RNA sequence: UCGGGGUAAAAUAGUGAGUCGCCGACUUGGGGAAGUGAUCAACCCUUGGGAUAAGUUUAAAUCUGCUGUUUUUUACUCCAUAAACUUAAGAUUCUUGUUGGGGUAUAAAAAAAAAAAAAAACCAGAUUUAAAUUUAGCUCAAGGGUUAGUGAUGUAUUUUUUUCAAGGUUGCUCAUUAUUUUACCCAUG
Dot-bracket structure: ...((((((((((((((((.(((...(((((((((..(((((((.(((((.((((.(((((((((.(.((((((((((((....(....)........))))))).........))))).).))))))))).)))).))))).)))...))))....)))))))))))).))))))))))))))))...